[Rfam]
RNA sequence: UCUACUGUAUGGUAUCUGCACUCAGCAGUGUCUUCCUGAUGUGGUGUUCAAACCCCAGUGCUACAGUAUUUCAGCAGCUGGCAUCCUUGGUUUUCAUGCAGUUGGGCUGGUUAAACCUGGUAUUCUUGUUGAAACAAGC
Number, nucleotide and partner (000 for none) at each position: 001u000002c000003u060004a059005c058006u057007g056008u000009a000010u000011g000012g000013u000014a000015u000016c000017u052018g047019c046020a045021c044022u043023c000024a040025g000026c038027a037028g036029u000030g000031u000032c000033u000034u000035c000036c028037u027038g026039a000040u024041g000042u000043g022044g021045u020046g019047u018048u000049c000050a000051a000052a017053c000054c000055c000056c007057a006058g005059u004060g003061c000062u000063a000064c128065a127066g126067u000068a124069u000070u122071u120072c119073a118074g117075c000076a000077g000078c000079u000080g108081g107082c106083a000084u104085c000086c000087u000088u000089g000090g000091u000092u000093u000094u000095c000096a000097u000098g000099c000100a000101g000102u000103u000104g084105g000106g082107c081108u080109g000110g000111u000112u000113a000114a000115a000116c000117c074118u073119g072120g071121u000122a070123u000124u068125c000126u066127u065128g064129u000130u000131g000132a000133a000134a000135c000136a000137a000138g000139c000
Shown here is a 139-nucleotide RNA sequence from Falco tinnunculus, a member of the family "Small nucleolar RNA SNORA8".
ACA8 is a member of the H/ACA class of snoRNA that guide the sites of modification of uridines to pseudouridines.
Lineage of the source: Eukaryota > Gnathostomata > Archosauria > Theropoda > Falco.
The family's RNA type in Rfam is H/ACA-box small nucleolar RNA.
The family has 5 seed sequences and 1,490 matches in Rfam 15.1.